[Rfam]
RNA sequence: UGACGGGGGCCCGCACAAGCGGCGGAGCAUGCGGAUUAAUUCGAUGCAACGCGAAGAACCUUACCUGGGUUUGACAUCUGCCGGAAGCAUCCAGAGAUGGGUGUGCCUUUUUGGUCGGUUGACAGGUGGUGCAUGGCUGUCGUCAGCUCGUGUCGUGAGAUGUUGGGUUAAGUCCCGCAACGAGCGCAACCCUCGUCCUAUGUUGCCAGCGGGUAAUGCCGGGAACUCAUGGGAGACUGCCGGGGUCAACUCGGAGGAAGGUGGGGAUGACGUCAAGUCAUCAUGCCCCUUAUGUCCAGGGCUUCACGCAUGCUACAAUGGCUGGUACAAAGUGUUGCUAUCCCGUGAGGGUGCGCGAAUCACGUAAAGCCAGUCUCAGUUCGGAUUGGGGUCUGCAACUCGACCCCAUGAAGUCGGAGUCGCUAGUAAUCGCAGAUCAGCAUUGCUGCGGUGAAUACGUUCCCGGGCCUUGUACACACCGCCCGUCAAGUCAUGAAAGUCGGUAACACCCGAAGCCGGUGGCCUAACCCUUGUGGGGGGAGCCGUCGAAGGUGGGAUCGGUAAUUAGGACUAAGUCGUAACAAGG
Numbered sequence: 001u002g003a004c005g006g007g008g009g010c011c012c013g014c015a016c017a018a019g020c021g022g023c024g025g026a027g028c029a030u031g032c033g034g035a036u037u038a039a040u041u042c043g044a045u046g047c048a049a050c051g052c053g054a055a056g057a058a059c060c061u062u063a064c065c066u067g068g069g070u071u072u073g074a075c076a077u078c079u080g081c082c083g084g085a086a087g088c089a090u091c092c093a094g095a096g097a098u099g100g101g102u103g104u105g106c107c108u109u110u111u112u113g114g115u116c117g118g119u120u121g122a123c124a125g126g127u128g129g130u131g132c133a134u135g136g137c138u139g140u141c142g143u144c145a146g147c148u149c150g151u152g153u154c155g156u157g158a159g160a161u162g163u164u165g166g167g168u169u170a171a172g173u174c175c176c177g178c179a180a181c182g183a184g185c186g187c188a189a190c191c192c193u194c195g196u197c198c199u200a201u202g203u204u205g206c207c208a209g210c211g212g213g214u215a216a217u218g219c220c221g222g223g224a225a226c227u228c229a230u231g232g233g234a235g236a237c238u239g240c241c242g243g244g245g246u247c248a249a250c251u252c253g254g255a256g257g258a259a260g261g262u263g264g265g266g267a268u269g270a271c272g273u274c275a276a277g278u279c280a281u282c283a284u285g286c287c288c289c290u291u292a293u294g295u296c297c298a299g300g301g302c303u304u305c306a307c308g309c310a311u312g313c314u315a316c317a318a319u320g321g322c323u324g325g326u327a328c329a330a331a332g333u334g335u336u337g338c339u340a341u342c343c344c345g346u347g348a349g350g351g352u353g354c355g356c357g358a359a360u361c362a363c364g365u366a367a368a369g370c371c372a373g374u375c376u377c378a379g380u381u382c383g384g385a386u387u388g389g390g391g392u393c394u395g396c397a398a399c400u401c402g403a404c405c406c407c408a409u410g411a412a413g414u415c416g417g418a419g420u421c422g423c424u425a426g427u428a429a430u431c432g433c434a435g436a437u438c439a440g441c442a443u444u445g446c447u448g449c450g451g452u453g454a455a456u457a458c459g460u461u462c463c464c465g466g467g468c469c470u471u472g473u474a475c476a477c478a479c480c481g482c483c484c485g486u487c488a489a490g491u492c493a494u495g496a497a498a499g500u501c502g503g504u505a506a507c508a509c510c511c512g513a514a515g516c517c518g519g520u521g522g523c524c525u526a527a528c529c530c531u532u533g534u535g536g537g538g539g540g541a542g543c544c545g546u547c548g549a550a551g552g553u554g555g556g557a558u559c560g561g562u563a564a565u566u567a568g569g570a571c572u573a574a575g576u577c578g579u580a581a582c583a584a585g586g
Stems, first nucleotide, its partner, number of pairs: 001476002003473003007470007015460002019423005024316001026314008034305002040055004064300007077122002080119005087104007106114001108113001125289002128287004134283002136278003139274001141272002146185006152161003164177004191266004196234007206223002210221003237257002240254005320375007332363003337356002342351003382413001387408007429452007479585001481582001484578002489572004494567003499562006507554004515547001517545004523540003528536002

The record is a 586-nucleotide part of an RNA from Propioniciclava flava, which matches "Bacterial small subunit ribosomal RNA" in Rfam.
The organism belongs to Propioniciclava, within Bacteria.
Rfam 15.1 lists 42,628 matches to the family in 10,626 species.